[Rfam]
RNA sequence: GAUUUAUUAACUGGUUGACCCUCCUUUGGCAGCAAUAAUCUCAACCAAAUGAAAAGAAAACAUUUGGUUGAGAUUAUUGCUGCCAAAGGAGGGUCAACCAGUUAAUAAAUC
Numbered sequence: 001g002a003u004u005u006a007u008u009a010a011c012u013g014g015u016u017g018a019c020c021c022u023c024c025u026u027u028g029g030c031a032g033c034a035a036u037a038a039u040c041u042c043a044a045c046c047a048a049a050u051g052a053a054a055a056g057a058a059a060a061c062a063u064u065u066g067g068u069u070g071a072g073a074u075u076a077u078u079g080c081u082g083c084c085a086a087a088g089g090a091g092g093g094u095c096a097a098c099c100a101g102u103u104a105a106u107a108a109a110u111c
Stems, first nucleotide, its partner, number of pairs: 005107005011101009021091004027085009
The record is a 111-nucleotide RNA sequence from Oncorhynchus kisutch, which matches "mir-399 microRNA precursor family" in Rfam. Rfam's curators write: mir-399 was identified in both Arabidopsis thaliana and Oryza sativa computationally and was later experimentally verified. mir-399 is thought to target mRNAs coding for a phosphatase transporter. The mature sequence is excised from the 3' arm of the hairpin. The family's consensus secondary structure was predicted with PFOLD. For this family Rfam cites "Computational Identification of Plant MicroRNAs and Their Targets, Including a Stress-Induced miRNA" (Jones-Rhoades and Bartel, Mol Cell, 2004). Gene Ontology terms of the family: miRNA-mediated post-transcriptional gene silencing and RISC complex.